Overview:
Rfam assigns this 99-nucleotide RNA from Paenibacillus antarcticus to the family "Purine riboswitch aptamer". It scores 67 bits against the family's covariance model. NCBI's taxonomy places the organism under Bacteria, Bacillati, Bacillota, Bacilli, Paenibacillus.
[Rfam]
RNA sequence: UAUAAAUUAUUUAACGUUAUUCGUAUAUUCUUAGAAUAUGGUCUAAGAGUCUCUACUAGGAGCCUAACAAUCCUAACUACGAAUGGGUGAGAUUACUCU
Dot-bracket structure: .................((((((((...(((((((......)))))))........(((((.........)))))..))))))))..............